RNA sequence: CGGACAGGGGGGUUCCUGCCUCGCCGGCAGGGCCUGUCCGACGAGGUCACGCGAAGGCGUGGCCAGUGGUUGUCGCUCGGGGGUGAUCGCCG
Numbered sequence: 001c002g003g004a005c006a007g008g009g010g011g012g013u014u015c016c017u018g019c020c021u022c023g024c025c026g027g028c029a030g031g032g033c034c035u036g037u038c039c040g041a042c043g044a045g046g047u048c049a050c051g052c053g054a055a056g057g058c059g060u061g062g063c064c065a066g067u068g069g070u071u072g073u074c075g076c077u078c079g080g081g082g083g084u085g086a087u088c089g090c091c092g
Base pairs, nucleotide, nucleotide: 001040002039003038004037005036006035007034008033014032015031016030017029018028019027020026045064046063047062048061049060050059051058052057